[Rfam]
RNA sequence: UUUAUUGCUUCGAUCAAUUCACUGAAAGUGACUACAUCAAGGCUUAUUUUAUAGUUUUCGCUCUCAUCUAUUUGAUGAAGAUGAAACUUAACCUCUGGUGUAGUCACUUUCAAUGCAUAGAUCAAUUCAUG
Numbered sequence: 001u002u003u004a005u006u007g008c009u010u011c012g013a014u015c016a017a018u019u020c021a022c023u024g025a026a027a028g029u030g031a032c033u034a035c036a037u038c039a040a041g042g043c044u045u046a047u048u049u050u051a052u053a054g055u056u057u058u059c060g061c062u063c064u065c066a067u068c069u070a071u072u073u074g075a076u077g078a079a080g081a082u083g084a085a086a087c088u089u090a091a092c093c094u095c096u097g098g099u100g101u102a103g104u105c106a107c108u109u110u111c112a113a114u115g116c117a118u119a120g121a122u123c124a125a126u127u128c129a130u131g
Stems, first nucleotide, its partner, number of pairs: 006129002012123004017118002020115002023112017041094002044085002046082005
A member of the RNA family "MIR161 microRNA precursor family" from Brassica carinata, 131 nucleotides long. A search with the family's covariance model found it, with a score of 99 bits. The organism belongs to Brassica, within Eukaryota.